[Rfam]
RNA sequence: CCUUUGGAGAACUAUGCCAAAUCGUAGUAGCUUAGGCAAGGCGAGGUUCGGUGAAGAAGGAA
Numbered sequence: 001c002c003u004u005u006g007g008a009g010a011a012c013u014a015u016g017c018c019a020a021a022u023c024g025u026a027g028u029a030g031c032u033u034a035g036g037c038a039a040g041g042c043g044a045g046g047u048u049c050g051g052u053g054a055a056g057a058a059g060g061a062a
Stems, first nucleotide, its partner, number of pairs: 001060005009049005022044003030037002

Rfam assigns this 62-nucleotide RNA sequence from Clostridioides difficile to the family "RAGATH-18 RNA". Rfam classes the family as a small RNA. The organism belongs to Clostridioides difficile, within Bacteria. Actinobacteria, Firmicutes, Fusobacteria, Thermotogae (1 example).